[Rfam]
RNA sequence: ACCCUGACCGUUACCGGUUUGCCAGUAUCAAACCCUGCUUCCCUGAGCCAGUUGCCCUUGAGGUGCAGGCUGGGGCUGCGCGAAUAAUAGGUGGCGGUAACAUCUCUGCGGCUCUCAUGGCGGAUACUG
Numbered sequence: 001a002c003c004c005u006g007a008c009c010g011u012u013a014c015c016g017g018u019u020u021g022c023c024a025g026u027a028u029c030a031a032a033c034c035c036u037g038c039u040u041c042c043c044u045g046a047g048c049c050a051g052u053u054g055c056c057c058u059u060g061a062g063g064u065g066c067a068g069g070c071u072g073g074g075g076c077u078g079c080g081c082g083a084a085u086a087a088u089a090g091g092u093g094g095c096g097g098u099a100a101c102a103u104c105u106c107u108g109c110g111g112c113u114c115u116c117a118u119g120g121c122g123g124a125u126a127c128u129g
Stems, first nucleotide, its partner, number of pairs: 029080001032077001034075003049072004053065004107122003

A member of the RNA family "isrA Hfq binding RNA" from Pluralibacter gergoviae, 129 nucleotides long. The base pairs follow the family's consensus structure, which was predicted with WAR. Rfam 15.1 lists 34 matches to the family in 25 species. The match comes from Rfam's covariance-model search (69 bits). A reference for the family is Padalon-Brauch et al. (2008), "Small RNAs encoded within genetic islands of Salmonella typhimurium show host-induced expression and role in virulence", Nucleic Acids Res. The organism belongs to Pluralibacter, within Bacteria.